[Rfam]
RNA sequence: AGAAAAGUAACCGCCGCCCCGCGCAGGGGCGACACCAAUAGACCGUCAAGCCAACCAGUUCAACGACGGAGCGCGGAUCACCGACUCCAAACCCGCGCCCCUGCGAGCCCCUC
Numbered sequence: 001a002g003a004a005a006a007g008u009a010a011c012c013g014c015c016g017c018c019c020c021g022c023g024c025a026g027g028g029g030c031g032a033c034a035c036c037a038a039u040a041g042a043c044c045g046u047c048a049a050g051c052c053a054a055c056c057a058g059u060u061c062a063a064c065g066a067c068g069g070a071g072c073g074c075g076g077a078u079c080a081c082c083g084a085c086u087c088c089a090a091a092c093c094c095g096c097g098c099c100c101c102u103g104c105g106a107g108c109c110c111c112u113c
Base pairs, nucleotide, nucleotide: 011076012075013074014073015031016030017029018028019027020026058067059066060065096105097104098103

The family of this 113-nucleotide sequence from Burkholderia sp. TJI49 is "Burkholderia sRNA Bp1_Cand684_SIPHT". Pairs were carried over by alignment from the consensus structure, which was predicted with RNAalifold. It is annotated as a small RNA. The family has 14 seed sequences and 176 matches in Rfam 15.1. On this family, see Khoo et al., BMC Genomics 2012: "Computational discovery and RT-PCR validation of novel Burkholderia conserved and Burkholderia pseudomallei unique sRNAs". The sequence is in the family's curated seed alignment.